The record is a 37-nucleotide RNA sequence, which matches "DUF805b RNA" in Rfam. Rfam's curators put it in the seed alignment.
RNA sequence: CAGGCGAUAACCCGAAAAGCCUUUAACAGAGUAGGGA
Numbered sequence: 001c002a003g004g005c006g007a008u009a010a011c012c013c014g015a016a017a018a019g020c021c022u023u024u025a026a027c028a029g030a031g032u033a034g035g036g037a
Stems, first nucleotide, its partner, number of pairs: 002022004011036003